[Rfam]
RNA sequence: CCUCUGCUAUCAGAGGCGGCGCUGAGUGCAUGAGAAUUAAGCUCAUGGUUCGGCUAGUGAAAACCCUCAGAG
Numbered sequence: 001c002c003u004c005u006g007c008u009a010u011c012a013g014a015g016g017c018g019g020c021g022c023u024g025a026g027u028g029c030a031u032g033a034g035a036a037u038u039a040a041g042c043u044c045a046u047g048g049u050u051c052g053g054c055u056a057g058u059g060a061a062a063a064c065c066c067u068c069a070g071a072g
Stems, first nucleotide, its partner, number of pairs: 001016006022070004029047006
Shown here is a 72-nucleotide sequence, a member of the family "RAGATH-16 RNA". Rfam's curators put it in the seed alignment.